[Rfam]
RNA sequence: AACAUUACCUGAACAAAAGUACAAACUUGACUUCUGAAAUCAGUAAGUGCUACUUGUUGGGGUAGUUUUA
Numbered sequence: 001a002a003c004a005u006u007a008c009c010u011g012a013a014c015a016a017a018a019g020u021a022c023a024a025a026c027u028u029g030a031c032u033u034c035u036g037a038a039a040u041c042a043g044u045a046a047g048u049g050c051u052a053c054u055u056g057u058u059g060g061g062g063u064a065g066u067u068u069u070a
Base pairs, nucleotide, nucleotide: 004066005065006064007063008062009061010060013057014056015055016054018051019050020049021048022047025044026043027042
RNA: miR-430 microRNA precursor family